[Rfam]
RNA sequence: GGUUGAAAGUUUGAGGCCAUAGCAGAAGCAAUCAUGGUGCAGCCCUGUCAGGUUCCAACAAAUCUGAGAUUUCUGCU
Numbered sequence: 001g002g003u004u005g006a007a008a009g010u011u012u013g014a015g016g017c018c019a020u021a022g023c024a025g026a027a028g029c030a031a032u033c034a035u036g037g038u039g040c041a042g043c044c045c046u047g048u049c050a051g052g053u054u055c056c057a058a059c060a061a062a063u064c065u066g067a068g069a070u071u072u073c074u075g076c077u
Stems, first nucleotide, its partner, number of pairs: 013045001015044003021077007028040003049066006